[Rfam]
RNA sequence: ACGUGGCCUGUGGGUUUCCCUUUGUCAUCCUAUGCCUGGAGCCGUGUGUAAGGCAGGGACAGCAAAGGGAGGCUCAGCCGUCACUUCA
Numbered sequence: 001a002c003g004u005g006g007c008c009u010g011u012g013g014g015u016u017u018c019c020c021u022u023u024g025u026c027a028u029c030c031u032a033u034g035c036c037u038g039g040a041g042c043c044g045u046g047u048g049u050a051a052g053g054c055a056g057g058g059a060c061a062g063c064a065a066a067g068g069g070a071g072g073c074u075c076a077g078c079c080g081u082c083a084c085u086u087c088a
Base pairs, nucleotide, nucleotide: 017070018069019068020067021066022065024063025062028059029058030057031056034054035053036052037051